[Rfam]
RNA: Group II catalytic intron D1-D4-3
RNA sequence: UCCAUCGCGAGGUGGAAUCUGAAGGAAGUCUACGGCAAAAUCCUGCCCCGAGGAACACGAAUCAUAUCAGGCACAACCGGUGGGAUGAGACUGCAAAACAAGUCAAAGUCUAAAGAUUAUGCGGACACCGGAGUGUAAAUAUGGCGGGGAUAUGGGAUGAAGGUUAUUUAU
Numbered sequence: 001u002c003c004a005u006c007g008c009g010a011g012g013u014g015g016a017a018u019c020u021g022a023a024g025g026a027a028g029u030c031u032a033c034g035g036c037a038a039a040a041u042c043c044u045g046c047c048c049c050g051a052g053g054a055a056c057a058c059g060a061a062u063c064a065u066a067u068c069a070g071g072c073a074c075a076a077c078c079g080g081u082g083g084g085a086u087g088a089g090a091c092u093g094c095a096a097a098a099c100a101a102g103u104c105a106a107a108g109u110c111u112a113a114a115g116a117u118u119a120u121g122c123g124g125a126c127a128c129c130g131g132a133g134u135g136u137a138a139a140u141a142u143g144g145c146g147g148g149g150a151u152a153u154g155g156g157a158u159g160a161a162g163g164u165u166a167u168u169u170a171u
Stems, first nucleotide, its partner, number of pairs: 001016006028171002032167001035164002040158006046149005062144005071136003077131006083111004089104004